[Rfam]
RNA sequence: AGGACAGUAGCUCAAUUGGUAGAGCAUCGGUUUCCAAAACCGAGGGUUGCAGGUUCGAGUCCUGUCUGUCCUG
Numbered sequence: 001a002g003g004a005c006a007g008u009a010g011c012u013c014a015a016u017u018g019g020u021a022g023a024g025c026a027u028c029g030g031u032u033u034c035c036a037a038a039a040c041c042g043a044g045g046g047u048u049g050c051a052g053g054u055u056c057g058a059g060u061c062c063u064g065u066c067u068g069u070c071c072u073g
Stems, first nucleotide, its partner, number of pairs: 001072007010025004027043005049065005
The family of this 73-nucleotide RNA sequence from Roseibacillus persicicus is "tRNA". By type it is a transfer RNA. Lineage of the source: Bacteria > Verrucomicrobiota > Verrucomicrobiales > Verrucomicrobiaceae > Roseibacillus.